[Rfam]
RNA sequence: CCGGUGACCCCACCCACUCACGUACGCACGGCAGGAGCGGGGGACCCAGGUAAGCCGCCGAUCCGGAGCAUUCGCCGGAACGGCUCGGGGUGAAGUCGCGCUCAUCGCGCGGCCGGACAUCUCCCGUCCGAACCCGACAGCUCACCUCGCAGGCGCCGGAGAGGAAUU
Numbered sequence: 001c002c003g004g005u006g007a008c009c010c011c012a013c014c015c016a017c018u019c020a021c022g023u024a025c026g027c028a029c030g031g032c033a034g035g036a037g038c039g040g041g042g043g044a045c046c047c048a049g050g051u052a053a054g055c056c057g058c059c060g061a062u063c064c065g066g067a068g069c070a071u072u073c074g075c076c077g078g079a080a081c082g083g084c085u086c087g088g089g090g091u092g093a094a095g096u097c098g099c100g101c102u103c104a105u106c107g108c109g110c111g112g113c114c115g116g117a118c119a120u121c122u123c124c125c126g127u128c129c130g131a132a133c134c135c136g137a138c139a140g141c142u143c144a145c146c147u148c149g150c151a152g153g154c155g156c157c158g159g160a161g162a163g164g165a166a167u168u
Stems, first nucleotide, its partner, number of pairs: 001035002037150006047087001088135003096112004115129004
This 168-nucleotide RNA sequence from Streptomyces lavendofoliae belongs to the Rfam family "c-di-AMP riboswitch aptamer (ydaO/yuaA leader)". It scores 56 bits against the family's covariance model. Gene Ontology terms of the family: regulation of gene expression and cyclic-di-AMP binding.